Shown here is a 369-nucleotide RNA from Vagococcus fessus, a member of the family "Bacterial RNase P class B". From the family's description: Ribonuclease P (RNase P) is a ubiquitous endoribonuclease, found in archaea, bacteria and eukarya as well as chloroplasts and mitochondria.
RNA sequence: GUUUUCGGAUAAUCGCGGUUUAGCUUGACUAGGCUGAGGAAAGUCCAUGCUCGCACAAGCUGCGAUGCUUGUAGUGUUCGUGCUUAGCGAAAAAAUAAGCUAAGGUACCUGCCUGGCAGGUAACGGCAGAUAAAACUCCUAAGGCUCCGGCUAUGGGGGAGUAGUCUUGAAAGUGCCACAGUGACGAAGUAACAUUAGAAAUGGUGUUAGUGGAACGCGGUAAACCCCUCGAGCGAGCAACCCAAACUAAGGUAGGGGCACUCUUUUUUAGGAAAUGAACAAGAAAAGAGACAGAUAUAUCUGUAGACAGAUGAUUAUCAUUAUACUUUUUUUCCUGAGAAGGUAUGAUACAGAACAUGGCUUAUAGAA
Numbered sequence: 001g002u003u004u005u006c007g008g009a010u011a012a013u014c015g016c017g018g019u020u021u022a023g024c025u026u027g028a029c030u031a032g033g034c035u036g037a038g039g040a041a042a043g044u045c046c047a048u049g050c051u052c053g054c055a056c057a058a059g060c061u062g063c064g065a066u067g068c069u070u071g072u073a074g075u076g077u078u079c080g081u082g083c084u085u086a087g088c089g090a091a092a093a094a095a096u097a098a099g100c101u102a103a104g105g106u107a108c109c110u111g112c113c114u115g116g117c118a119g120g121u122a123a124c125g126g127c128a129g130a131u132a133a134a135a136c137u138c139c140u141a142a143g144g145c146u147c148c149g150g151c152u153a154u155g156g157g158g159g160a161g162u163a164g165u166c167u168u169g170a171a172a173g174u175g176c177c178a179c180a181g182u183g184a185c186g187a188a189g190u191a192a193c194a195u196u197a198g199a200a201a202u203g204g205u206g207u208u209a210g211u212g213g214a215a216c217g218c219g220g221u222a223a224a225c226c227c228c229u230c231g232a233g234c235g236a237g238c239a240a241c242c243c244a245a246a247c248u249a250a251g252g253u254a255g256g257g258g259c260a261c262u263c264u265u266u267u268u269u270a271g272g273a274a275a276u277g278a279a280c281a282a283g284a285a286a287a288g289a290g291a292c293a294g295a296u297a298u299a300u301c302u303g304u305a306g307a308c309a310g311a312u313g314a315u316u317a318u319c320a321u322u323a324u325a326c327u328u329u330u331u332u333u334c335c336u337g338a339g340a341a342g343g344u345a346u347g348a349u350a351c352a353g354a355a356c357a358u359g360g361c362u363u364a365u366a367g368a369a
Base pairs, nucleotide, nucleotide: 004369005368006367007365008319009318010317011316012315013314014313016036017035018034019033020032021031041363042362043361045360046359047358048357049356050237051236052235053234054233055072056071057070058069059068060067078232079231080230082228083104084103085102086101087100088099105124106122107121108120109119110118111117125227126226128167129166130165131164136158137157138156139155143152144151145150173225174224175221176220177219190209191208192207193206194205195204196203197202241257242256243255261290262289263288264287265286266285267284291304292303293302294301295300321348322347323346324345325344326343327342328341329340330339331338
Source information
Gene Ontology terms of the family: dimeric ribonuclease P complex, tRNA processing and ribonuclease P activity. It is annotated as a ribozyme. A search with the family's covariance model found it, with a score of 349 bits. Lineage of the source: Bacteria > Bacillota > Bacilli > Lactobacillales > Vagococcus.